RT-3 RNA: a 149-nucleotide sequence from Bacteroides fragilis. Rfam's curators put it in the seed alignment. NCBI's taxonomy places the organism under Bacteria, Pseudomonadati, Bacteroidota, Bacteroidales, Bacteroides fragilis.
RNA sequence: AAUCGGCGUACAGCACAGGGGACGUGUCCCCGGAGCGGUGCCGAGGGAGGCAAGCCCCAGCAACAGCAUCCAUGAAGGGUGGAAAGCUGAAAAAUCACGCGUCGGGUGGAGUUUGGUAGGACGGUAACGUCUCGAAGAAGUCAGGCCCG
Dot-bracket structure: ..((((((..(.((...(((((....)))))...)).))))))).((.......)).((((.....(((((.....)))))....)))).............(((((.((.(((....(((((....)))))....))).))..)))))